Rfam assigns this 159-nucleotide sequence from an Alphaproteobacteria bacterium to the family "permuted transfer-messenger RNA". Rfam describes the family as follows. Bacterial tmRNA, also known as 10Sa RNA or SsrA, is named for its dual tRNA and mRNA-like properties. Its role is to liberate the mRNA from a stalled ribosome. To accomplish this part of the tmRNA is used as a reading frame that ends in a translation stop signal. The broken mRNA is replaced in the ribosome by the tmRNA and translation of the tmRNA leads to addition of a proteolysis tag to the incomplete protein enabling recognition by a protease. Recently a number of permuted tmRNA genes have been found encoded in two parts. tmRNAs have been identified in eubacteria and some chloroplasts but are absent from archaeal and eukaryote nuclear genomes. Pairs were carried over by alignment from the consensus structure, which is taken from published work. By type it is a non-coding RNA gene.
RNA sequence: GGUGAUAAACAUCUAAUUAAUUAGGUUUAGUGGACUCGGGGGCGGAGCCCGACAUCUCCACCAAUGGGGAUGAAUUAGGUUCGACACGAAUUGAAAAGUUGGGUUUUUACUCGGAUUGGUUUCCCGUAAUAAGACUAAUAAGUAAAUGCAAAUGAUAAU
Numbered sequence: 001g002g003u004g005a006u007a008a009a010c011a012u013c014u015a016a017u018u019a020a021u022u023a024g025g026u027u028u029a030g031u032g033g034a035c036u037c038g039g040g041g042g043c044g045g046a047g048c049c050c051g052a053c054a055u056c057u058c059c060a061c062c063a064a065u066g067g068g069g070a071u072g073a074a075u076u077a078g079g080u081u082c083g084a085c086a087c088g089a090a091u092u093g094a095a096a097a098g099u100u101g102g103g104u105u106u107u108u109a110c111u112c113g114g115a116u117u118g119g120u121u122u123c124c125c126g127u128a129a130u131a132a133g134a135c136u137a138a139u140a141a142g143u144a145a146a147u148g149c150a151a152a153u154g155a156u157a158a159u
Stems, first nucleotide, its partner, number of pairs: 001111005014101004026090003030087003036052005053072007112126003